A member of the RNA family "FMN riboswitch aptamer (RFN element)" from Macrococcoides caseolyticum, 127 nucleotides long. Rfam links the family to the GO term FMN binding. NCBI's taxonomy places the organism under Bacteria, Bacillota, Caryophanales, Macrococcoides, Macrococcoides caseolyticum. A search with the family's covariance model found it, with a score of 113 bits. The family's consensus secondary structure is taken from published work.

[Rfam]
RNA sequence: ACAUUCUUUCGGGGCUGGGUGAAAUUCCCAACCGGCGGUGAUAGCCCGCGACCCUUAUGCACUGCAUAAGGCUGACUCUUUGAAAUUCAGAGGCCGACAGUUAAAGUCUGGAUGGGAGAAAGAAUAG
Numbered sequence: 001a002c003a004u005u006c007u008u009u010c011g012g013g014g015c016u017g018g019g020u021g022a023a024a025u026u027c028c029c030a031a032c033c034g035g036c037g038g039u040g041a042u043a044g045c046c047c048g049c050g051a052c053c054c055u056u057a058u059g060c061a062c063u064g065c066a067u068a069a070g071g072c073u074g075a076c077u078c079u080u081u082g083a084a085a086u087u088c089a090g091a092g093g094c095c096g097a098c099a100g101u102u103a104a105a106g107u108c109u110g111g112a113u114g115g116g117a118g119a120a121a122g123a124a125u126a127g
Base pairs, nucleotide, nucleotide: 003125004124005123006122007121008120009119010118017029018028019027031107032106033096034095035049036048037047038046044094045093053071054070076092077091078090079089098110099109100108
Dot-bracket structure: ..((((((((......(((.......))).[[((((((.....[[))))...((...............))....((((.........))))]])).(((.....]]))).......))))))))..